The family of this 86-nucleotide RNA sequence from Photinus pyralis is "Selenocysteine transfer RNA". The match comes from Rfam's covariance-model search (78 bits). Clan: tRNA clan.
RNA sequence: GCUCAACUGAUCUUCAGUGGUCUGGAGUGCAGACUUCAAAUCUGUAGUCGAUUAGCGUCGAAGUGGUUCGAUUCCACCUGUUGAGC
Numbered sequence: 001g002c003u004c005a006a007c008u009g010a011u012c013u014u015c016a017g018u019g020g021u022c023u024g025g026a027g028u029g030c031a032g033a034c035u036u037c038a039a040a041u042c043u044g045u046a047g048u049c050g051a052u053u054a055g056c057g058u059c060g061a062a063g064u065g066g067u068u069c070g071a072u073u074c075c076a077c078c079u080g081u082u083g084a085g086c
Stems, first nucleotide, its partner, number of pairs: 001086007009078001012027006028046006048061005063077004